[Rfam]
RNA sequence: UGAUAGCGUUAACGAUGGAAGCGACAUCCUUUUUGGCUGUCAUCCUGGAUGUAGGGGAAGGAAAGGCAAAAAGAUAUAGCGAACAGCGUGUUAAAAC
Number, nucleotide and partner (000 for none) at each position: 001u000002g000003a000004u000005a000006g000007c000008g000009u000010u000011a000012a089013c088014g087015a000016u085017g084018g000019a000020a000021g080022c079023g000024a000025c000026a075027u074028c073029c000030u000031u000032u070033u069034u068035g067036g000037c065038u064039g000040u000041c000042a000043u000044c000045c000046u000047g000048g000049a000050u000051g000052u000053a000054g000055g000056g000057g000058a000059a000060g000061g000062a000063a000064a038065g037066g000067c035068a034069a033070a032071a000072a000073g028074a027075u026076a000077u000078a000079g022080c021081g000082a000083a000084c017085a016086g000087c014088g013089u012090g000091u000092u000093a000094a000095a000096a000097c000